[Rfam]
A member of the RNA family "mir-3473 microRNA precursor family" from Jaculus jaculus, 80 nucleotides long.
Gene Ontology terms of the family: cellular response to mechanical stimulus, miRNA-mediated post-transcriptional gene silencing and RISC complex.
Pairs were carried over by alignment from the consensus structure, which was predicted with RNAalifold.
RNA sequence: ACCACUAAGCCAUCUCUCCAGCCCCCAGAAUGACUUUUAAAAUUUUAUGUUAGAAGGGGCUGGAGAGAUGGCUUAGUGGC
Numbered sequence: 001a002c003c004a005c006u007a008a009g010c011c012a013u014c015u016c017u018c019c020a021g022c023c024c025c026c027a028g029a030a031u032g033a034c035u036u037u038u039a040a041a042a043u044u045u046u047a048u049g050u051u052a053g054a055a056g057g058g059g060c061u062g063g064a065g066a067g068a069u070g071g072c073u074u075a076g077u078g079g080c
Stems, first nucleotide, its partner, number of pairs: 002079023